[Rfam]
RNA sequence: CCGUGCUAGGCGGGGAGGUAGCGGUGCCCUGUACUCGCAAUCCGCUAUAGCGAGGCUGAAUUCCCUGUCGAGGUGUUAAGACUUUAAGGUCUGCCUUAAGGGAGUAGUGUUGACACUUGGGUCCUGCGCAAUGGGAACUCGUGAAUCAUGUCAGGUCCGGAAGGAAGCAGCAUUAAGCGAACAUUCUCGUGUGCCGCGGGGAAGCCUGAGUCGAGCUAUGAACUUAAGUAACGCUUAGGGUCUUGACAUCGACACAGGGUGCACGG
Dot-bracket structure: ((((((..(((((((.(.(...).).))))...(((((...........)))))))).....((((((...(((((..((((((((((...((..(((((.....(((......((((((((((((((((.(((((..((((.....((((....(((....)))....))))...))))....)))))))...))))))...))))))))...))).....))))).))...))))))))))..)))))...)))))).))))))
RNA: Bacterial large signal recognition particle RNA